[Rfam]
RNA sequence: AUCAGGUUGGGGUAAACUUCGACGAAAGUGAAGGACGCUAAAGUCAUGGGUCUAAGGCUAAUUUCAGACGCCUGAAAUUACGCUAGGAUCGCCAGAUUACAAGC
Number, nucleotide and partner (000 for none) at each position: 001a000002u000003c000004a000005g000006g000007u000008u000009g000010g000011g000012g038013u037014a000015a000016a000017c033018u032019u031020c030021g000022a029023c028024g000025a000026a000027a000028g023029u022030g020031a019032a018033g017034g000035a000036c000037g013038c012039u000040a000041a000042a098043g097044u096045c095046a000047u094048g093049g092050g089051u088052c087053u000054a000055a000056g000057g083058c082059u000060a000061a000062u000063u000064u000065c000066a000067g000068a000069c000070g000071c000072c000073u000074g000075a000076a000077a000078u000079u000080a000081c000082g058083c057084u000085a000086g000087g052088a051089u050090c000091g000092c049093c048094a047095g045096a044097u043098u042099a000100c000101a000102a000103g000104c000